Record summary:
This 146-nucleotide RNA from Triticum aestivum belongs to the Rfam family "Small nucleolar RNA F1/F2/snoR5a".
[Rfam]
RNA sequence: GGAUGCCAUGAGGUAUCUGAUUCUUGGUCUUCUUUCAUGGCCUUGUUUCUCGUUAGAUUGGCUAACAGUGAGAAGGAAACGGGUCUUUGCGACACUGGCUGCUCUCAUACCAGGAGCUUCCUGUUACUAUACCCCCGUUUACAUCA
Numbered sequence: 001g002g003a004u005g006c007c008a009u010g011a012g013g014u015a016u017c018u019g020a021u022u023c024u025u026g027g028u029c030u031u032c033u034u035u036c037a038u039g040g041c042c043u044u045g046u047u048u049c050u051c052g053u054u055a056g057a058u059u060g061g062c063u064a065a066c067a068g069u070g071a072g073a074a075g076g077a078a079a080c081g082g083g084u085c086u087u088u089g090c091g092a093c094a095c096u097g098g099c100u101g102c103u104c105u106c107a108u109a110c111c112a113g114g115a116g117c118u119u120c121c122u123g124u125u126a127c128u129a130u131a132c133c134c135c136c137g138u139u140u141a142c143a144u145c146a
Base pairs, nucleotide, nucleotide: 005062006061007060008059009057019049020048023045026042027041028040029039078139079138080137081136082135094124095123097121098120101117102116103115104114105113
Its family is annotated with RNA processing and nucleolus in the Gene Ontology. About the family: This family contains F1, F2 and snoR5a sequences, all of which are members of the the H/ACA class of snoRNA that guide the sites of modification of uridines to pseudouridines. The family's RNA type in Rfam is H/ACA-box small nucleolar RNA. A search with the family's covariance model found it, with a score of 67 bits.